Glycine riboswitch aptamer: a 92-nucleotide RNA from Thiothrix nivea. The base pairs follow the family's consensus structure. Taxonomically the source falls in Thiothrix nivea (Bacteria, Pseudomonadati, Thiotrichales, Thiotrichaceae).
[Rfam]
RNA sequence: UAAAAGCUGGCAGAAGAGUGUUGCCCAUGUGGCAGCCGCCGAAGGCGCAAUUCCGCCCGGAAACGCUCAGGCAAAAGGACUGGCAGUGCUAU
Numbered sequence: 001u002a003a004a005a006g007c008u009g010g011c012a013g014a015a016g017a018g019u020g021u022u023g024c025c026c027a028u029g030u031g032g033c034a035g036c037c038g039c040c041g042a043a044g045g046c047g048c049a050a051u052u053c054c055g056c057c058c059g060g061a062a063a064c065g066c067u068c069a070g071g072c073a074a075a076a077g078g079a080c081u082g083g084c085a086g087u088g089c090u091a092u
Stems, first nucleotide, its partner, number of pairs: 006087004011082003020036004038072003041068002045066003052060001